[Rfam]
RNA: c-di-AMP riboswitch aptamer (ydaO/yuaA leader)
Organism: Paenibacillus baekrokdamisoli
RNA sequence: CUCUUACGCGAGCCGAAACUUUUGUACGGGGGAUCUUUUGGAGAACACUAGAAGGUGUUUUCCACCGAGAAUGAACACUGAGAAGUGGUUGAUUUCACGGUGAUUGCGCGCAAGCGCUGGGGGUGAAUCGCAGAGCGGAGCUAUCCGCAAAUGUGUAGGGUUGAACUCCUCAAUCCGAAUCCGACAACUAACCUCGCAGGCGAAAAAAAGGAGGACAU
Numbered sequence: 001c002u003c004u005u006a007c008g009c010g011a012g013c014c015g016a017a018a019c020u021u022u023u024g025u026a027c028g029g030g031g032g033a034u035c036u037u038u039u040g041g042a043g044a045a046c047a048c049u050a051g052a053a054g055g056u057g058u059u060u061u062c063c064a065c066c067g068a069g070a071a072u073g074a075a076c077a078c079u080g081a082g083a084a085g086u087g088g089u090u091g092a093u094u095u096c097a098c099g100g101u102g103a104u105u106g107c108g109c110g111c112a113a114g115c116g117c118u119g120g121g122g123g124u125g126a127a128u129c130g131c132a133g134a135g136c137g138g139a140g141c142u143a144u145c146c147g148c149a150a151a152u153g154u155g156u157a158g159g160g161u162u163g164a165a166c167u168c169c170u171c172a173a174u175c176c177g178a179a180u181c182c183g184a185c186a187a188c189u190a191a192c193c194u195c196g197c198a199g200g201c202g203a204a205a206a207a208a209a210g211g212a213g214g215a216c217a218u
Base pairs, nucleotide, nucleotide: 012201013200014199018025019024027196028195029194030193031192036120037119121182122181123180129155130154131153132152158176159175160174161173